A member of the RNA family "Lysine riboswitch aptamer" from Phocoenobacter uteri, 187 nucleotides long. NCBI's taxonomy places the organism under Bacteria, Gammaproteobacteria, Pasteurellales, Pasteurellaceae, Phocoenobacter. The match comes from Rfam's covariance-model search (121 bits). The literature on the family includes a 2003 paper in Cell by Mandal et al., "Riboswitches Control Fundamental Biochemical Pathways in Bacillus subtilis and Other Bacteria". Pairs were carried over by alignment from the consensus structure, which is taken from published work.
RNA sequence: GCAAAUUGUAGAGGUGCGAAAAUCAAGAGUAUUCUAUUCGAGUGGAUAACGUUGAAGAUAGAAAAAAGGGAGAUUCGCCGAAAUCAGUUUAAGUGUCGGCUUGACUGGUUGGGGUUAUAUCCGAAAGGAAUAACACUGUCAUCAUCAAUAAUAUUAAUUUUAUAGAUGAUGGAGGGCUACUGUGAUG
Numbered sequence: 001g002c003a004a005a006u007u008g009u010a011g012a013g014g015u016g017c018g019a020a021a022a023u024c025a026a027g028a029g030u031a032u033u034c035u036a037u038u039c040g041a042g043u044g045g046a047u048a049a050c051g052u053u054g055a056a057g058a059u060a061g062a063a064a065a066a067a068g069g070g071a072g073a074u075u076c077g078c079c080g081a082a083a084u085c086a087g088u089u090u091a092a093g094u095g096u097c098g099g100c101u102u103g104a105c106u107g108g109u110u111g112g113g114g115u116u117a118u119a120u121c122c123g124a125a126a127g128g129a130a131u132a133a134c135a136c137u138g139u140c141a142u143c144a145u146c147a148a149u150a151a152u153a154u155u156a157a158u159u160u161u162a163u164a165g166a167u168g169a170u171g172g173a174g175g176g177c178u179a180c181u182g183u184g185a186u187g
Stems, first nucleotide, its partner, number of pairs: 006182001008180004016078005023071002032063007082110008091101001111137002114134005120128002139172007